RNA sequence: ACCUUAUUGAGAGUGGUGGAGUGAAUGGGCACGAUGAAACCCGGCAACCUUUUAUGUGGUGCCAAAUCCCACAGAGAAAUCUGGAAGAUAAGGA
Numbered sequence: 001a002c003c004u005u006a007u008u009g010a011g012a013g014u015g016g017u018g019g020a021g022u023g024a025a026u027g028g029g030c031a032c033g034a035u036g037a038a039a040c041c042c043g044g045c046a047a048c049c050u051u052u053u054a055u056g057u058g059g060u061g062c063c064a065a066a067u068c069c070c071a072c073a074g075a076g077a078a079a080u081c082u083g084g085a086a087g088a089u090a091a092g093g094a
Base pairs, nucleotide, nucleotide: 002093003092004091005090006089007088008087013042015041016040017039021032022031023030026071027070028069029068043063044062045061046060048059049058067086072083073082074081075080
The family of this 94-nucleotide RNA from Anaerosphaera aminiphila is "SAM riboswitch aptamer (S box leader)". Pairs were carried over by alignment from the consensus structure, which is taken from published work. Rfam describes the family as follows. The SAM riboswitch is found upstream of a number of genes which code for proteins involved in methionine or cysteine biosynthesis in Gram-positive bacteria.